[Rfam]
RNA sequence: UGUUUCAUGUGGGGGGACCGGUGUUGCCGGUUGAGAUUGUAUCCAAUAGAUACUGACCCUUGGAACCUGAUCUGGCUGAGACCAGCGUAGGGAACAUAUCUGAACACGUA
Numbered sequence: 001u002g003u004u005u006c007a008u009g010u011g012g013g014g015g016g017a018c019c020g021g022u023g024u025u026g027c028c029g030g031u032u033g034a035g036a037u038u039g040u041a042u043c044c045a046a047u048a049g050a051u052a053c054u055g056a057c058c059c060u061u062g063g064a065a066c067c068u069g070a071u072c073u074g075g076c077u078g079a080g081a082c083c084a085g086c087g088u089a090g091g092g093a094a095c096a097u098a099u100c101u102g103a104a105c106a107c108g109u110a
Stems, first nucleotide, its partner, number of pairs: 007097004011060004016054001017031005039053004066091004072085004

The record is a 110-nucleotide RNA from Paraliobacillus sp. PM-2, which matches "TPP riboswitch aptamer (THI element)" in Rfam. The organism belongs to Paraliobacillus, within Bacteria. From the family's description: Vitamin B(1) in its active form thiamin pyrophosphate (TPP) is an essential coenzyme that is synthesised by coupling of pyrimidine and thiazole moieties in bacteria.